[Rfam]
Rfam assigns this 78-nucleotide sequence from Channa argus to the family "mir-458 microRNA precursor family". Rfam 15.1 lists 1,011 matches to the family in 491 species. The base pairs follow the family's consensus structure, which was predicted with RNAalifold. The match comes from Rfam's covariance-model search (70 bits).

Nucleotides: 078
Base pairs, nucleotide, nucleotide: 002077003076004075007072008071011068012067013066016063017062018061019060020059021058024055025054026053027052028051029050030049031048
Number, partner (000 for none) and nucleotide at each position: 001000g002077u003076g004075c005000a006000u007072a008071c009000a010000g011068c012067a013066g014000u015000a016063c017062c018061a019060u020059u021058u022000a023000a024055a025054g026053a027052g028051c029050u030049a031048u032000g033000a034000c035000a036000a037000c038000g039000u040000u041000c042000a043000c044000a045000c046000u047000u048031a049030u050029a051028g052027c053026u054025c055024u056000g057000a058021a059020a060019a061018u062017g063016g064000c065000g066013c067012u068011g069000c070000a071008g072007u073000c074000u075004g076003c077002a078000a